[Rfam]
RNA sequence: UGCAGCUGUGUCAAAUUCAGUGCCUGCUCUACCUGUGGCAAGCACUGGCCCCAAAGGCUGCAACAGAAACACUGUGACCCAUGGGCCCUGCUCCUCCCUCCCAGGUUCAGGGAUAGAUCUGGUCACAGACACCA
Numbered sequence: 001u002g003c004a005g006c007u008g009u010g011u012c013a014a015a016u017u018c019a020g021u022g023c024c025u026g027c028u029c030u031a032c033c034u035g036u037g038g039c040a041a042g043c044a045c046u047g048g049c050c051c052c053a054a055a056g057g058c059u060g061c062a063a064c065a066g067a068a069a070c071a072c073u074g075u076g077a078c079c080c081a082u083g084g085g086c087c088c089u090g091c092u093c094c095u096c097c098c099u100c101c102c103a104g105g106u107u108c109a110g111g112g113a114u115a116g117a118u119c120u121g122g123u124c125a126c127a128g129a130c131a132c133c134a
Stems, first nucleotide, its partner, number of pairs: 002061004018047006025040004074126006086112005
Dot-bracket structure: .((((............((((((.((((........)))).))))))..........))))............((((((......(((((.................)))))........))))))........
Rfam assigns this 134-nucleotide RNA sequence from Tupaia belangeri to the family "Small nucleolar RNA SNORA5". Gene Ontology terms of the family: RNA processing and nucleolus. A search with the family's covariance model found it, with a score of 134 bits. The base pairs follow the family's consensus structure, which was predicted with RNAfold. Clan: SNORA5 clan. It is annotated as an H/ACA-box small nucleolar RNA. ACA5 is a member of the H/ACA class of snoRNA that guide the sites of modification of uridines to pseudouridines. The organism belongs to Tupaia belangeri, within Eukaryota.